[Rfam]
The record is a 346-nucleotide part of an RNA from Bulleidia extructa, which matches "Bacterial small subunit ribosomal RNA" in Rfam.
For this family Rfam cites "Crystal structure of the ribosome at 5.5 A resolution" (Yusupov et al., Science, 2001).
RNA sequence: GGCGUAAAGGGUGCGUAGGCGGUCUGUUAAGUUCAUGGUCAAAUUGUGGGGCUCAACCCCAUCGCGCCAUGGAUACUGGCAGACUAGAGUAUUGGAGAGGCAAGUGGAAUUCCAUGUGUAGCGGUAAAAUGCGUAGAUAUAUGGAGGAACACCGGUGGCGAAGGCGACUUGCUAGCCAAAGACUGACGCUGAGGCACGAAAGCGUGGGGAGCAAAUAGGAUUAGAUACCCUAGUAGUCCACGCUGUAAACGAUGAAUACUAAGUAUUGGGGAGACUCAGUGCUGCAGCUAACGCAUUAAGUAUUCCGCCUGUGGAGUAUGCACGCAAGUGUGAAACAUAAAGGAAU
Dot-bracket structure: (((.....(.((((.(.(((.(((((((.((((((((((......((((((.....))))))...))))))))..)))))))))...(((.((((...((((((((...((((((((...(((......)))......))))))))...).......((....)).)))))))..))))..)))...))))..))))....((((((...((...((((.........))))...))))))))..........((((((..(((((((((....)))))))))...((....)).....)))))))))).(((......((((....))))....)))........